[Rfam]
RNA sequence: AUCGCUUCUCGGCCUCUGGCUAGGAUCAAAGUGUAGUAUCUGUUCUUAUCAGCUUAAUAUCUGAUACGACCCCGCAUGCGGAGCCAGUAUAUUAAACUGAUUUUUGGAAAUAGAUGGAAGAUUAAGUAUCUUGCUCAACUUCUAUCACGGGUUGGCCUAGUAUUGCAGUACCGCAGGGAUUGGCCAAUUUAAA
Numbered sequence: 001a002u003c004g005c006u007u008c009u010c011g012g013c014c015u016c017u018g019g020c021u022a023g024g025a026u027c028a029a030a031g032u033g034u035a036g037u038a039u040c041u042g043u044u045c046u047u048a049u050c051a052g053c054u055u056a057a058u059a060u061c062u063g064a065u066a067c068g069a070c071c072c073c074g075c076a077u078g079c080g081g082a083g084c085c086a087g088u089a090u091a092u093u094a095a096a097c098u099g100a101u102u103u104u105u106g107g108a109a110a111u112a113g114a115u116g117g118a119a120g121a122u123u124a125a126g127u128a129u130c131u132u133g134c135u136c137a138a139c140u141u142c143u144a145u146c147a148c149g150g151g152u153u154g155g156c157c158u159a160g161u162a163u164u165g166c167a168g169u170a171c172c173g174c175a176g177g178g179a180u181u182g183g184c185c186a187a188u189u190u191a192a193a
Stems, first nucleotide, its partner, number of pairs: 007025003011021004047066006068084001070083001072081003113146008128135001150185005156178003160174002

This 193-nucleotide sequence from Diabrotica balteata belongs to the Rfam family "U2 spliceosomal RNA".
The family has 208 seed sequences and 71,512 matches in Rfam 15.1.
The base pairs follow the family's consensus structure, which is taken from published work.
Lineage of the source: Eukaryota > Dicondylia > Chrysomelidae > Diabroticina > Diabrotica.
Rfam classes the family as a spliceosomal small nuclear RNA.